[Rfam]
RNA sequence: UUCUUAUCAAGAGAGGCAGAGGGACUGGCCCGAUGAAGCCUCAGCAACCGGUGAAUGAAUAUUCAUGACCAAGGUGCUAAAUCCAGCAAGCAGCCUGCUUGGAAGAUAAGAA
Numbered sequence: 001u002u003c004u005u006a007u008c009a010a011g012a013g014a015g016g017c018a019g020a021g022g023g024a025c026u027g028g029c030c031c032g033a034u035g036a037a038g039c040c041u042c043a044g045c046a047a048c049c050g051g052u053g054a055a056u057g058a059a060u061a062u063u064c065a066u067g068a069c070c071a072a073g074g075u076g077c078u079a080a081a082u083c084c085a086g087c088a089a090g091c092a093g094c095c096u097g098c099u100u101g102g103a104a105g106a107u108a109a110g111a112a
Stems, first nucleotide, its partner, number of pairs: 001112008013042005021031003025086004043078004048074002050070003082104001087101005
The record is a 112-nucleotide sequence from Bacillus licheniformis, which matches "SAM riboswitch aptamer (S box leader)" in Rfam. The base pairs follow the family's consensus structure, which is taken from published work. It is one of the family's seed sequences. Lineage of the source: Bacteria > Bacillota > Caryophanales > Bacillus > Bacillus licheniformis.